[Rfam]
RNA sequence: CCCUCUCUCAGGUUCUAGCACGGCCCUCGGAAUGGCUAGAACUUUUUAAGGCGCCACGGCAACGUGGCGCCUUUUUUU
Number, nucleotide and partner (000 for none) at each position: 001c000002c000003c000004u000005c000006u000007c000008u000009c000010a044011g043012g042013u041014u040015c039016u038017a037018g036019c035020a000021c000022g000023g000024c030025c029026c000027u000028c000029g025030g024031a000032a000033u000034g000035g019036c018037u017038a016039g015040a014041a013042c012043u011044u010045u000046u000047u000048a000049a000050g071051g070052c069053g068054c067055c066056a065057c064058g063059g000060c000061a000062a000063c058064g057065u056066g055067g054068c053069g052070c051071c050072u000073u000074u000075u000076u000077u000078u000